[Rfam]
RNA sequence: ACUAGUGGAUUUGGCAAGAUGUCGGAAUAGCUGAAAGUCACACAAAAUCAUAAAAUGUUUGCCGUUUUGUUAUUGUUGUGAAUUUUAUUGAUUUCAAAAAUUACGGCUAUGCCUCAUCUAGUCAAUUGCAUUAGUU
Numbered sequence: 001a002c003u004a005g006u007g008g009a010u011u012u013g014g015c016a017a018g019a020u021g022u023c024g025g026a027a028u029a030g031c032u033g034a035a036a037g038u039c040a041c042a043c044a045a046a047a048u049c050a051u052a053a054a055a056u057g058u059u060u061g062c063c064g065u066u067u068u069g070u071u072a073u074u075g076u077u078g079u080g081a082a083u084u085u086u087a088u089u090g091a092u093u094u095c096a097a098a099a100a101u102u103a104c105g106g107c108u109a110u111g112c113c114u115c116a117u118c119u120a121g122u123c124a125a126u127u128g129c130a131u132u133a134g135u136u
Base pairs, nucleotide, nucleotide: 005131006130007129009127011125012124013123014122015121017119018118019117020116021115024113025112027110028109029108030107031106032105033104